Small nucleolar RNA SNORD30: a 70-nucleotide RNA sequence from Scophthalmus maximus. For this family Rfam cites "A mammalian gene with introns instead of exons generating stable RNA products" (Tycowski et al., Nature, 1996). The family is grouped with related families in Rfam's "SNORD30 clan". The family has 20 seed sequences and 367 matches in Rfam 15.1. Rfam links the family to the GO terms RNA processing and nucleolus. It is annotated as a C/D-box small nucleolar RNA.
RNA sequence: GAAAGUGAUGAUAUACAUUUGGAAUCUCGUUCGUCUGAACUCCUGUUGAGAAAUUCAAUUACUGACUUCU
Numbered sequence: 001g002a003a004a005g006u007g008a009u010g011a012u013a014u015a016c017a018u019u020u021g022g023a024a025u026c027u028c029g030u031u032c033g034u035c036u037g038a039a040c041u042c043c044u045g046u047u048g049a050g051a052a053a054u055u056c057a058a059u060u061a062c063u064g065a066c067u068u069c070u
Stems, first nucleotide, its partner, number of pairs: 025051005032045002